Shown here is a 64-nucleotide RNA from Methylibium petroleiphilum, a member of the family "Betaproteobacteria toxic small RNA". For this family Rfam cites "Identification of small RNAs abundant in Burkholderia cenocepacia biofilms reveal putative regulators with a potential role in carbon and iron metabolism" (Sass et al., Sci Rep, 2017). Overexpression in amino aid rich medium attenuates growth, suggesting role in repressing amino acid intake and metabolism. A search with the family's covariance model found it, with a score of 65 bits.
[Rfam]
RNA sequence: UGUCUCCUCCACCCUCCUCCAAAGGUGGAUUCAGCCCAGGGCCUCACGGCCUUGGGCUUUUUUA
Numbered sequence: 001u002g003u004c005u006c007c008u009c010c011a012c013c014c015u016c017c018u019c020c021a022a023a024g025g026u027g028g029a030u031u032c033a034g035c036c037c038a039g040g041g042c043c044u045c046a047c048g049g050c051c052u053u054g055g056g057c058u059u060u061u062u063u064a
Stems, first nucleotide, its partner, number of pairs: 008029006034057008
The family's consensus secondary structure was predicted with WAR.